[Rfam]
RNA sequence: GGCGAUAAACGCCGUUCGUAAUAGGCAGAGCGGACCCGGGGGCAGUACCCGGCGCCUCCACCAGUUUCGUCCGCCCCAAUGGUUUCUCGUUAGAGACAGGGGCGGACUUUAAGGGGGCGAACCAGGAUCGACGCAUGUUGAAAGGGACGAUUUUCGCUCGGCAUGGCACCACCGUUAUCGGGCCAUCGCAAUAGUUGCCAACGACAACUUUGCUGAGGCUCGCGCAGCUGCUUAA
Numbered sequence: 001g002g003c004g005a006u007a008a009a010c011g012c013c014g015u016u017c018g019u020a021a022u023a024g025g026c027a028g029a030g031c032g033g034a035c036c037c038g039g040g041g042g043c044a045g046u047a048c049c050c051g052g053c054g055c056c057u058c059c060a061c062c063a064g065u066u067u068c069g070u071c072c073g074c075c076c077c078a079a080u081g082g083u084u085u086c087u088c089g090u091u092a093g094a095g096a097c098a099g100g101g102g103c104g105g106a107c108u109u110u111a112a113g114g115g116g117g118c119g120a121a122c123c124a125g126g127a128u129c130g131a132c133g134c135a136u137g138u139u140g141a142a143a144g145g146g147a148c149g150a151u152u153u154u155c156g157c158u159c160g161g162c163a164u165g166g167c168a169c170c171a172c173c174g175u176u177a178u179c180g181g182g183c184c185a186u187c188g189c190a191a192u193a194g195u196u197g198c199c200a201a202c203g204a205c206a207a208c209u210u211u212g213c214u215g216a217g218g219c220u221c222g223c224g225c226a227g228c229u230g231c232u233u234a235a
Base pairs, nucleotide, nucleotide: 001158002157003156004155005154014148015147016146017145026137027136030134031133032132036052037051038050039049040048053119054118055117056116057115058114059113159174160173161172